[Rfam]
RNA sequence: ACCGUGGGGACAAGCGAUCUCCUCAUGAGGCGACAUGCCAAAGUAUCGCGUCACGCAUUUUUGCGAGGCGCUUUCGCAUG
Numbered sequence: 001a002c003c004g005u006g007g008g009g010a011c012a013a014g015c016g017a018u019c020u021c022c023u024c025a026u027g028a029g030g031c032g033a034c035a036u037g038c039c040a041a042a043g044u045a046u047c048g049c050g051u052c053a054c055g056c057a058u059u060u061u062u063g064c065g066a067g068g069c070g071c072u073u074u075c076g077c078a079u080g
Base pairs, nucleotide, nucleotide: 005025006024007023008022009021010020048071049070050069051068052067
The record is an 80-nucleotide RNA, which matches "chrB-a RNA" in Rfam.
The base pairs follow the family's consensus structure, which is taken from published work.
It is annotated as a cis-regulatory element.